This 78-nucleotide RNA sequence from Alligator mississippiensis belongs to the Rfam family "Mammalian CPEB3 ribozyme". Gene Ontology term of the family: RNA nuclease activity. Lineage of the source: Eukaryota > Sarcopterygii > Amniota > Alligatorinae > Alligator.
RNA sequence: GACAGCCCUCAGGGAUACUCAGAGGAAGCAUGCUCAUUGCGAGUCCUGCCAGAUUAUUUGUAAUCUGCAAUUACUUUA
Number, nucleotide and partner (000 for none) at each position: 001g000002a000003c000004a000005g000006c000007c000008c000009u000010c000011a000012g000013g046014g045015a044016u043017a000018c041019u000020c000021a000022g077023a076024g075025g074026a000027a072028g040029c039030a038031u000032g000033c000034u000035c000036a000037u000038u030039g029040c028041g018042a000043g016044u015045c014046c013047u000048g000049c000050c067051a066052g065053a064054u063055u062056a061057u000058u000059u000060g000061u056062a055063a054064u053065c052066u051067g050068c000069a000070a000071u000072u027073a000074c025075u024076u023077u022078a000